Background: The family of this 73-nucleotide RNA sequence from bacterium HR12 is "tRNA". The match comes from Rfam's covariance-model search (67 bits). Pairs were carried over by alignment from the consensus structure, which is taken from published work.
RNA sequence: GCCGGAGUAGCUCAGUCGGCAGAGCACCUCCAUGGUAAGGAGGGGGUCAGGGGUUCGAGUCCCCUCUCCGGCU
Numbered sequence: 001g002c003c004g005g006a007g008u009a010g011c012u013c014a015g016u017c018g019g020c021a022g023a024g025c026a027c028c029u030c031c032a033u034g035g036u037a038a039g040g041a042g043g044g045g046g047u048c049a050g051g052g053g054u055u056c057g058a059g060u061c062c063c064c065u066c067u068c069c070g071g072c073u
Base pairs, nucleotide, nucleotide: 001072002071003070004069005068006067007066010025011024012023013022027043028042029041030040031039049065050064051063052062053061